[Rfam]
RNA sequence: UAAAUGCGACAACACCGAGUGUUUCGGCUCUACGUUUGCCUAAUGGCUUUAAAGCUAGUGGGUAGAUAGGAACGAUCCACCUCGCACUUAUGCGACAGGGUUUGGCUGGAAACGGUUAGGCCUCCCGAAUUUGGAAAGGUGAAUAAUGCUACAAGAC
Numbered sequence: 001u002a003a004a005u006g007c008g009a010c011a012a013c014a015c016c017g018a019g020u021g022u023u024u025c026g027g028c029u030c031u032a033c034g035u036u037u038g039c040c041u042a043a044u045g046g047c048u049u050u051a052a053a054g055c056u057a058g059u060g061g062g063u064a065g066a067u068a069g070g071a072a073c074g075a076u077c078c079a080c081c082u083c084g085c086a087c088u089u090a091u092g093c094g095a096c097a098g099g100g101u102u103u104g105g106c107u108g109g110a111a112a113c114g115g116u117u118a119g120g121c122c123u124c125c126c127g128a129a130u131u132u133g134g135a136a137a138g139g140u141g142a143a144u145a146a147u148g149c150u151a152c153a154a155g156a157c
Stems, first nucleotide, its partner, number of pairs: 004150001013141004019080003024075003029071002034067009082095005098123011124134002
Dot-bracket structure: ...(........((((..(((..(((..((...(((((((((................)))))))))..)).)))..))).(((((....)))))..(((((((((((....)))))))))))((.......))...))))........).......